[Rfam]
This 108-nucleotide RNA sequence from Triticum aestivum belongs to the Rfam family "Small nucleolar RNA Z188". The family has 21 seed sequences and 104 matches in Rfam 15.1. It scores 62 bits against the family's covariance model.
RNA sequence: GCGUGCCGAUGAUGAUGCAAAAGCAUCGGUGAAUUCUGGAUGAGUGUGCCCGCGGACGACCAGUGUGCGGCUCUGGUGAUAUCCGCAGCGUAAUACUCUGAGGCACGC
Numbered sequence: 001g002c003g004u005g006c007c008g009a010u011g012a013u014g015a016u017g018c019a020a021a022a023g024c025a026u027c028g029g030u031g032a033a034u035u036c037u038g039g040a041u042g043a044g045u046g047u048g049c050c051c052g053c054g055g056a057c058g059a060c061c062a063g064u065g066u067g068c069g070g071c072u073c074u075g076g077u078g079a080u081a082u083c084c085g086c087a088g089c090g091u092a093a094u095a096c097u098c099u100g101a102g103g104c105a106c107g108c
Stems, first nucleotide, its partner, number of pairs: 002107006